RNA sequence: UCCACCAAAGUUUCCCUCAGGAUAGCAAUAUUAAGCUCAGUUUUAUAAAAUAAAGCGAAUAAUUAAGGACUCGGGGGCUAUUUUUUACCUUCAUCCAUUCUCAAACUUUAAAUAUAUAAAAAGCCCUUAUUACUUAGUUAAACGUAGGCAUUCGAAUAUAUCAACACUAGUAAGCCAUUUUUGGUAAGCAGAACUAGUAAUACGGGAUAAACCGAACGCGAGGUUAAGGUACCAGAGUAGUCGCUCAUUAAACACCACAAAAAGUAUUAGUACAUCUUAACAACAGGAUAGUAGCUAUAAAAGUCGGAAUCCGCUAAGGACUAUAUAACAACUCACCUACCGAAUAUACUAACCCUAAAAAUAAAUAGCGCUCAAGCAACUUACCCAUACCUCGCCCUCAAUAUAAAAACGAUACGCUAAGGAAUAAGCGGACGUAAAAGUUAAUAACAAAGCCUAGGGCAUAAGCCCGGGUAGAACGGCCUCUAGUAUAGAUC
Numbered sequence: 001u002c003c004a005c006c007a008a009a010g011u012u013u014c015c016c017u018c019a020g021g022a023u024a025g026c027a028a029u030a031u032u033a034a035g036c037u038c039a040g041u042u043u044u045a046u047a048a049a050a051u052a053a054a055g056c057g058a059a060u061a062a063u064u065a066a067g068g069a070c071u072c073g074g075g076g077g078c079u080a081u082u083u084u085u086u087a088c089c090u091u092c093a094u095c096c097a098u099u100c101u102c103a104a105a106c107u108u109u110a111a112a113u114a115u116a117u118a119a120a121a122a123g124c125c126c127u128u129a130u131u132a133c134u135u136a137g138u139u140a141a142a143c144g145u146a147g148g149c150a151u152u153c154g155a156a157u158a159u160a161u162c163a164a165c166a167c168u169a170g171u172a173a174g175c176c177a178u179u180u181u182u183g184g185u186a187a188g189c190a191g192a193a194c195u196a197g198u199a200a201u202a203c204g205g206g207a208u209a210a211a212c213c214g215a216a217c218g219c220g221a222g223g224u225u226a227a228g229g230u231a232c233c234a235g236a237g238u239a240g241u242c243g244c245u246c247a248u249u250a251a252a253c254a255c256c257a258c259a260a261a262a263a264g265u266a267u268u269a270g271u272a273c274a275u276c277u278u279a280a281c282a283a284c285a286g287g288a289u290a291g292u293a294g295c296u297a298u299a300a301a302a303g304u305c306g307g308a309a310u311c312c313g314c315u316a317a318g319g320a321c322u323a324u325a326u327a328a329c330a331a332c333u334c335a336c337c338u339a340c341c342g343a344a345u346a347u348a349c350u351a352a353c354c355c356u357a358a359a360a361a362u363a364a365a366u367a368g369c370g371c372u373c374a375a376g377c378a379a380c381u382u383a384c385c386c387a388u389a390c391c392u393c394g395c396c397c398u399c400a401a402u403a404u405a406a407a408a409a410c411g412a413u414a415c416g417c418u419a420a421g422g423a424a425u426a427a428g429c430g431g432a433c434g435u436a437a438a439a440g441u442u443a444a445u446a447a448c449a450a451a452g453c454c455u456a457g458g459g460c461a462u463a464a465g466c467c468c469g470g471g472u473a474g475a476a477c478g479g480c481c482u483c484u485a486g487u488a489u490a491g492a493u494c
Stems, first nucleotide, its partner, number of pairs: 001432003005428001011024001013022003027168001029166001031164002041121007053109001054107002060103001062101001065098001067096003073092005080086001123149003128144001130142002174198002177195001179193005203214003218395005224389001228385003237382001239381001243377002262356001264354001267352006274345002285338003289313001291311001295307002314318001319334001324331001396422003400418001402416001404414001435485002438482001440480003445476001452472002458467003
This 494-nucleotide part of an RNA from Colletotrichum abscissum belongs to the Rfam family "Eukaryotic large subunit ribosomal RNA". Lineage of the source: Eukaryota > sordariomyceta > Hypocreomycetidae > Glomerellales > Colletotrichum acutatum species complex.